[Rfam]
RNA sequence: CAUCCGGGUGCGCGGCUUUGGGACUCCGCGCAAGCAUGGGAUUGGAUCGUCGGGCAGAGCGAGCGCCCCGUUCCCCGCCGGGACCGCUC
Numbered sequence: 001c002a003u004c005c006g007g008g009u010g011c012g013c014g015g016c017u018u019u020g021g022g023a024c025u026c027c028g029c030g031c032a033a034g035c036a037u038g039g040g041a042u043u044g045g046a047u048c049g050u051c052g053g054g055c056a057g058a059g060c061g062a063g064c065g066c067c068c069c070g071u072u073c074c075c076c077g078c079c080g081g082g083a084c085c086g087c088u089c
Stems, first nucleotide, its partner, number of pairs: 002042004010031006061089005067082004
Shown here is an 89-nucleotide RNA from Amaricoccus solimangrovi, a member of the family "Rhodo-rpoB RNA". The family's consensus secondary structure is taken from published work.